[Rfam]
RNA sequence: GCCCAACAUUCGCACGUGCCUGUGGUCGCGUGCCGAUCGGCGGAAGUCCGGACAAGAGGCCGGAAAGUCGCCAGGAAGAUCGGUAGCCGGAGGCGAAACCGGCGCACCUCGCUCUCAGCGGGGAACGUGACUUGAAGCAACGACGUAGCGGGCUUUU
Numbered sequence: 001g002c003c004c005a006a007c008a009u010u011c012g013c014a015c016g017u018g019c020c021u022g023u024g025g026u027c028g029c030g031u032g033c034c035g036a037u038c039g040g041c042g043g044a045a046g047u048c049c050g051g052a053c054a055a056g057a058g059g060c061c062g063g064a065a066a067g068u069c070g071c072c073a074g075g076a077a078g079a080u081c082g083g084u085a086g087c088c089g090g091a092g093g094c095g096a097a098a099c100c101g102g103c104g105c106a107c108c109u110c111g112c113u114c115u116c117a118g119c120g121g122g123g124a125a126c127g128u129g130a131c132u133u134g135a136a137g138c139a140a141c142g143a144c145g146u147a148g149c150g151g152g153c154u155u156u157u
Stems, first nucleotide, its partner, number of pairs: 001153004010143003017139003024132008039072005047064005080102005107123006